[Rfam]
RNA: nuoG RNA
RNA sequence: GAAUUUUGAUUAACGCUCGGAUUUAUUCGAGCCAACUGGAAG
Numbered sequence: 001g002a003a004u005u006u007u008g009a010u011u012a013a014c015g016c017u018c019g020g021a022u023u024u025a026u027u028c029g030a031g032c033c034a035a036c037u038g039g040a041a042g
Stems, first nucleotide, its partner, number of pairs: 015032007
Dot-bracket structure: ..............(((((((....)))))))..........